[Rfam]
Shown here is an 81-nucleotide RNA sequence from Dermatophagoides pteronyssinus, a member of the family "mir-184 microRNA precursor family". Rfam links the family to the GO terms RISC complex and gene silencing by miRNA. The source organism's lineage runs through Eukaryota, Metazoa, Protostomia, Psoroptidia and Dermatophagoides.
RNA sequence: GUCUCUUCGUUUCCUUAUCAUUUCAGCUGUCCAGACUUAAAUAGAGAGCUGGACGGAGAACUGAUAAGGGCAGGGAAAGAC
Numbered sequence: 001g002u003c004u005c006u007u008c009g010u011u012u013c014c015u016u017a018u019c020a021u022u023u024c025a026g027c028u029g030u031c032c033a034g035a036c037u038u039a040a041a042u043a044g045a046g047a048g049c050u051g052g053a054c055g056g057a058g059a060a061c062u063g064a065u066a067a068g069g070g071c072a073g074g075g076a077a078a079g080a081c
Base pairs, nucleotide, nucleotide: 012070013069014068015067016066017065018064019063020062022060023059024058027055030052031051